RNA sequence: ACCAUCCUUUUCUUGGGGUUGCACUACUGUCCAAUGAACAUUUAGUGAGGGCAGUACUGCUCAUGCCUUUACAAAAUAUUCCAGUUUAAACACGCAGAACUUUUUGUGAGU
Numbered sequence: 001a002c003c004a005u006c007c008u009u010u011u012c013u014u015g016g017g018g019u020u021g022c023a024c025u026a027c028u029g030u031c032c033a034a035u036g037a038a039c040a041u042u043u044a045g046u047g048a049g050g051g052c053a054g055u056a057c058u059g060c061u062c063a064u065g066c067c068u069u070u071a072c073a074a075a076a077u078a079u080u081c082c083a084g085u086u087u088a089a090a091c092a093c094g095c096a097g098a099a100c101u102u103u104u105u106g107u108g109a110g111u
Stems, first nucleotide, its partner, number of pairs: 006018004021060003026055007038046002093108006
RNA: U4atac minor spliceosomal RNA